[Rfam]
RNA sequence: CGGUGGGAACGACCGAACGAAUCUAGGAGCGAGGACGGGGGACCCAACCUCAUCCCCUGAGACCGGGCACCACACCAGGUGUCCUCGGGGUUAAGUCCCAGGCGCAGAACCGUGAUUAACAUUCACGGGGACGCACUGGGGCCGAGCAACCUCUCGCUCGAACCCGACAGCUGACUUCGUAGGCGCGUGGAGAGAGGAAUC
Numbered sequence: 001c002g003g004u005g006g007g008a009a010c011g012a013c014c015g016a017a018c019g020a021a022u023c024u025a026g027g028a029g030c031g032a033g034g035a036c037g038g039g040g041g042a043c044c045c046a047a048c049c050u051c052a053u054c055c056c057c058u059g060a061g062a063c064c065g066g067g068c069a070c071c072a073c074a075c076c077a078g079g080u081g082u083c084c085u086c087g088g089g090g091u092u093a094a095g096u097c098c099c100a101g102g103c104g105c106a107g108a109a110c111c112g113u114g115a116u117u118a119a120c121a122u123u124c125a126c127g128g129g130g131a132c133g134c135a136c137u138g139g140g141g142c143c144g145a146g147c148a149a150c151c152u153c154u155c156g157c158u159c160g161a162a163c164c165c166g167a168c169a170g171c172u173g174a175c176u177u178c179g180u181a182g183g184c185g186c187g188u189g190g191a192g193a194g195a196g197g198a199a200u201c
Stems, first nucleotide, its partner, number of pairs: 013183002018034001035180006045087001088165003096141006144159004
A member of the RNA family "c-di-AMP riboswitch aptamer (ydaO/yuaA leader)" from Gordonia sp. YY1, 201 nucleotides long. The organism belongs to Gordonia, within Bacteria. The match comes from Rfam's covariance-model search (52 bits).